Background: mraW RNA: a 105-nucleotide sequence from Nocardia nova. Taxonomically the source falls in Nocardia nova (Bacteria, Bacillati, Actinomycetes, Nocardiaceae). Pairs were carried over by alignment from the consensus structure, which is taken from published work. A search with the family's covariance model found it, with a score of 72 bits. The family's RNA type in Rfam is cis-regulatory element.

RNA sequence: ACAGGCGAGUGCCCUGCGGCCUCUGCCCGACACGGACCCUGACGUACUUCCCCAACGCCAGGUGCCGUGCUUCGGACAGAGACCUCGGGGCAUUGGCCGCCGAUU
Numbered sequence: 001a002c003a004g005g006c007g008a009g010u011g012c013c014c015u016g017c018g019g020c021c022u023c024u025g026c027c028c029g030a031c032a033c034g035g036a037c038c039c040u041g042a043c044g045u046a047c048u049u050c051c052c053c054a055a056c057g058c059c060a061g062g063u064g065c066c067g068u069g070c071u072u073c074g075g076a077c078a079g080a081g082a083c084c085u086c087g088g089g090g091c092a093u094u095g096g097c098c099g100c101c102g103a104u105u
Stems, first nucleotide, its partner, number of pairs: 010092007018084002021081005027075004031069005038062004043057003